[Rfam]
RNA sequence: ACACAAGAGAGGAGGUGGUCCAAAGUUGUAUAGCUAUCGGACUCGUGAGGUGGCUGUCCGCUAGGACCAGCCCUCGGUGACGCCUAAGCGAAUACCAGGCAGCCACCCGGCCCCCGGACUUCGAGCACUGGUCCUGCUCGGCCCGCUCACGCGGGAGUCGUCCGGGGGUUGUCCCAU
Numbered sequence: 001a002c003a004c005a006a007g008a009g010a011g012g013a014g015g016u017g018g019u020c021c022a023a024a025g026u027u028g029u030a031u032a033g034c035u036a037u038c039g040g041a042c043u044c045g046u047g048a049g050g051u052g053g054c055u056g057u058c059c060g061c062u063a064g065g066a067c068c069a070g071c072c073c074u075c076g077g078u079g080a081c082g083c084c085u086a087a088g089c090g091a092a093u094a095c096c097a098g099g100c101a102g103c104c105a106c107c108c109g110g111c112c113c114c115c116g117g118a119c120u121u122c123g124a125g126c127a128c129u130g131g132u133c134c135u136g137c138u139c140g141g142c143c144c145g146c147u148c149a150c151g152c153g154g155g156a157g158u159c160g161u162c163c164g165g166g167g168g169u170u171g172u173c174c175c176a177u
Base pairs, nucleotide, nucleotide: 014058015057016056017055018054019053059090060089061088062086063085064084065083108171109170110169111168112167113166114165115164116163117162118161119160122140123139124138125137126136127135
RNA: Actinobacteria sRNA Ms_IGR-5